[Rfam]
chrB-a RNA: an 83-nucleotide RNA sequence from Roseobacter ponti.

RNA sequence: UGCAUGGGGACACAGCGAUCGCCCCGUGAGGCCACGGCCUGAGUAUCGCAUCCUGUUCCAAGACCAAAAGGAUGCUGACCAUG
Numbered sequence: 001u002g003c004a005u006g007g008g009g010a011c012a013c014a015g016c017g018a019u020c021g022c023c024c025c026g027u028g029a030g031g032c033c034a035c036g037g038c039c040u041g042a043g044u045a046u047c048g049c050a051u052c053c054u055g056u057u058c059c060a061a062g063a064c065c066a067a068a069a070g071g072a073u074g075c076u077g078a079c080c081a082u083g
Stems, first nucleotide, its partner, number of pairs: 005026005048075006

Source information:
Pairs were carried over by alignment from the consensus structure, which is taken from published work.